Record summary:
The record is an 87-nucleotide RNA sequence from Oxalobacteraceae bacterium IMCC9480, which matches "SAH (S-adenosyl-L-homocysteine) riboswitch aptamer" in Rfam. The organism belongs to Oxalobacteraceae, within Bacteria. Rfam links the family to the GO terms regulation of gene expression and S-adenosylhomocysteine metabolic process. A search with the family's covariance model found it, with a score of 46 bits.
[Rfam]
RNA sequence: GCCUCCAAGGAGCGUUGCAGCCGGACUUGCGUCAGCAAGCCGGGUCAGGCUUGGAAGCACCAUCCCCAGCAACUGCGCUCACGUUUC
Dot-bracket structure: .(.(((((............((.(.((((......)))).).))......))))).)..............................